[Rfam]
Purine riboswitch aptamer: a 102-nucleotide sequence from Halalkalibacter akibai. The organism belongs to Halalkalibacter akibai, within Bacteria. Pairs were carried over by alignment from the consensus structure, which is taken from published work.
RNA sequence: UAAGAACGAUAUAUAAACCUUCGUAUAUCCUUAGGAAUAUGGCCUAAGAGUCUCUACCGGAUUACCGUAAACAAUCUGACUAUGAAGGCAGAAUGGGUUUGU
Numbered sequence: 001u002a003a004g005a006a007c008g009a010u011a012u013a014u015a016a017a018c019c020u021u022c023g024u025a026u027a028u029c030c031u032u033a034g035g036a037a038u039a040u041g042g043c044c045u046a047a048g049a050g051u052c053u054c055u056a057c058c059g060g061a062u063u064a065c066c067g068u069a070a071a072c073a074a075u076c077u078g079a080c081u082a083u084g085a086a087g088g089c090a091g092a093a094u095g096g097g098u099u100u101g102u
Stems, first nucleotide, its partner, number of pairs: 018088008030048006058078006